A member of the RNA family "T-box leader" from Ureibacillus manganicus, 237 nucleotides long. The source organism's lineage runs through Bacteria, Bacillota, Caryophanaceae, Ureibacillus and Ureibacillus manganicus. Rfam classes the family as a cis-regulatory leader. Gene Ontology term of the family: tRNA binding.
[Rfam]
RNA sequence: AAUUUGCCAAUGACCGAGAAAGUAGCAAUUACCUAUGCUGAUAAGAGAGGGAGAGACUUAGGCUGAAAUCUUUCCUGCAGUAAGUAAAUGUGAACAACACUUGAGAGGCUUUCCUUCGAAAUGUUUAAAACUUAGUAGGGGGGAACGGAAUCGGCCGUUAUCCGAUUAUGAGAGGAUGUACUAUUUAGUACAUCAACUAGGGUGGAACCGCGGAAGUUACUAGCUUUCGUCCCUUGC
Dot-bracket structure: ......((......((((......(((.((.......(((........((((((..............))))))...))).....)).)))........))))...))..(((((((....................))))))).(((......))).................(((((((......)))))))....((((.......((((((((.....))))))))))))...
Numbered sequence: 001a002a003u004u005u006g007c008c009a010a011u012g013a014c015c016g017a018g019a020a021a022g023u024a025g026c027a028a029u030u031a032c033c034u035a036u037g038c039u040g041a042u043a044a045g046a047g048a049g050g051g052a053g054a055g056a057c058u059u060a061g062g063c064u065g066a067a068a069u070c071u072u073u074c075c076u077g078c079a080g081u082a083a084g085u086a087a088a089u090g091u092g093a094a095c096a097a098c099a100c101u102u103g104a105g106a107g108g109c110u111u112u113c114c115u116u117c118g119a120a121a122u123g124u125u126u127a128a129a130a131c132u133u134a135g136u137a138g139g140g141g142g143g144a145a146c147g148g149a150a151u152c153g154g155c156c157g158u159u160a161u162c163c164g165a166u167u168a169u170g171a172g173a174g175g176a177u178g179u180a181c182u183a184u185u186u187a188g189u190a191c192a193u194c195a196a197c198u199a200g201g202g203u204g205g206a207a208c209c210g211c212g213g214a215a216g217u218u219a220c221u222a223g224c225u226u227u228c229g230u231c232c233c234u235u236g237c
Stems, first nucleotide, its partner, number of pairs: 007108002015103004025091003029087002038080003049074006111144007146157003175194007199234004210230008